Record summary:
A member of the RNA family "Archaeal large subunit ribosomal RNA" from an uncultured Nitrososphaerota archaeon, 296 nucleotides of a longer RNA.
[Rfam]
RNA sequence: GGCCUCCUGAGGGGAAGCCGCCCUCAGUACGAGAGGAACGGGGUGGCGCGGCCUCUGGUGUACCGGUUGUCCGGUAGGGCAGGGGCCGGGCAGCUAAGCCGCUUGGGAUAACCCCUGAAAGCAUCUAAGGGGGAAGCCCUUCCCGAGACGAGGAGGCCAUCCGCCGCGGUGCUCCCGCGAGGGGGCUCCGUGGUGGUGGAGGGUCGCCGUAGAAGACGGCGUUGAUGGGGCGGCGGUGUAAGCCGGAAGGUCGCAAGGCCGACCGGUUCAGCCGGCCGCUCCCAAUAGCCCAACGC
Numbered sequence: 001g002g003c004c005u006c007c008u009g010a011g012g013g014g015a016a017g018c019c020g021c022c023c024u025c026a027g028u029a030c031g032a033g034a035g036g037a038a039c040g041g042g043g044u045g046g047c048g049c050g051g052c053c054u055c056u057g058g059u060g061u062a063c064c065g066g067u068u069g070u071c072c073g074g075u076a077g078g079g080c081a082g083g084g085g086c087c088g089g090g091c092a093g094c095u096a097a098g099c100c101g102c103u104u105g106g107g108a109u110a111a112c113c114c115c116u117g118a119a120a121g122c123a124u125c126u127a128a129g130g131g132g133g134a135a136g137c138c139c140u141u142c143c144c145g146a147g148a149c150g151a152g153g154a155g156g157c158c159a160u161c162c163g164c165c166g167c168g169g170u171g172c173u174c175c176c177g178c179g180a181g182g183g184g185g186c187u188c189c190g191u192g193g194u195g196g197u198g199g200a201g202g203g204u205c206g207c208c209g210u211a212g213a214a215g216a217c218g219g220c221g222u223u224g225a226u227g228g229g230g231c232g233g234c235g236g237u238g239u240a241a242g243c244c245g246g247a248a249g250g251u252c253g254c255a256a257g258g259c260c261g262a263c264c265g266g267u268u269c270a271g272c273c274g275g276c277c278g279c280u281c282c283c284a285a286u287a288g289c290c291c292a293a294c295g296c
Stems, first nucleotide, its partner, number of pairs: 001158008011144004017047008048102005056096003063089005068081005105139003112132005201291004205221005226284003229280005234274003242267005249260003